[Rfam]
RNA sequence: ACUGCCCCUUACCCGACGGGGGACAGGCCGGACACCUUCACCGGCUUGGGGCAGUAACUUGUGAAGG
Numbered sequence: 001a002c003u004g005c006c007c008c009u010u011a012c013c014c015g016a017c018g019g020g021g022g023a024c025a026g027g028c029c030g031g032a033c034a035c036c037u038u039c040a041c042c043g044g045c046u047u048g049g050g051g052c053a054g055u056a057a058c059u060u061g062u063g064a065a066g067g
Stems, first nucleotide, its partner, number of pairs: 001055008012021003027045005035067005
Shown here is a 67-nucleotide sequence from Spongiibacter nanhainus, a member of the family "int-alpA RNA". The match comes from Rfam's covariance-model search (44 bits). By type it is a small RNA. Lineage of the source: Bacteria > Pseudomonadota > Cellvibrionales > Spongiibacteraceae > Spongiibacter. Acidobacteria (1 example), Planctomycetes (1 example), Proteobacteria.